RNA sequence: GGUCCAAAUUUGAAGUAGAGCAGAUUAGUAGUAUCAGUUGACCCUACUUAUCUACUGUACUUCAAAUUUUGGCCC
Numbered sequence: 001g002g003u004c005c006a007a008a009u010u011u012g013a014a015g016u017a018g019a020g021c022a023g024a025u026u027a028g029u030a031g032u033a034u035c036a037g038u039u040g041a042c043c044c045u046a047c048u049u050a051u052c053u054a055c056u057g058u059a060c061u062u063c064a065a066a067u068u069u070u071g072g073c074c075c
Base pairs, nucleotide, nucleotide: 001074002073003072004071006069007068008067009066011064012063013062014061015060016059017058019056020055022053023052025050027048028047029046030045034041035040

Description: Rfam assigns this 75-nucleotide RNA from Haemonchus placei to the family "mir-5928 microRNA precursor family". It scores 67 bits against the family's covariance model. Pairs were carried over by alignment from the consensus structure, which was predicted with RNAalifold. Rfam links the family to the GO terms RISC complex and miRNA-mediated post-transcriptional gene silencing.